[Rfam]
RNA sequence: GUUUUUAACCAAGUUACUCGAGGUAAAUCUUGAGAUUCGAUCAAGUUCAGACUUGUAUCGAAUGAAUCAGUUUUGGAUCCAACCUUUCUGGGGAUAUCCGGAAAGGAA
Numbered sequence: 001g002u003u004u005u006u007a008a009c010c011a012a013g014u015u016a017c018u019c020g021a022g023g024u025a026a027a028u029c030u031u032g033a034g035a036u037u038c039g040a041u042c043a044a045g046u047u048c049a050g051a052c053u054u055g056u057a058u059c060g061a062a063u064g065a066a067u068c069a070g071u072u073u074u075g076g077a078u079c080c081a082a083c084c085u086u087u088c089u090g091g092g093g094a095u096a097u098c099c100g101g102a103a104a105g106g107a108a
Stems, first nucleotide, its partner, number of pairs: 007036001009032001013028002015025003038060004042055005083106006092099002
Notes: The family of this 108-nucleotide RNA sequence from Diploscapter pachys is "SL2 RNA". Taxonomically the source falls in Diploscapter (Eukaryota, Opisthokonta, Bilateria, Rhabditomorpha). Its family is annotated with mRNA trans splicing, via spliceosome in the Gene Ontology. From the family's description: This family represents SL2 RNA. SL2 RNA is involved in trans splicing in lower eukaryotes. Trans-splicing is a form of RNA processing. The acquisition of a spliced leader from a SL RNA is a intra-molecular reaction which precisely joins exons derived from separately transcribed RNAs. Rfam 15.1 lists 598 matches to the family in 38 species. Pairs were carried over by alignment from the consensus structure, which is taken from published work.